[Rfam]
The family of this 53-nucleotide RNA sequence from Turnix velox is "U7 small nuclear RNA".
The organism belongs to Turnix, within Eukaryota.
A reference for the family is Spycher et al. (1994), "3' end processing of mouse histone pre-mRNA: evidence for additional base-pairing between U7 snRNA and pre-mRNA", Nucleic Acids Res.
RNA sequence: GAAUUUCAAAGCUCUUGUAUUUCUUGAAGGCUCUGCUUUUUAGCAGAGCCCCC
Dot-bracket structure: ............................((((((((......))))))))...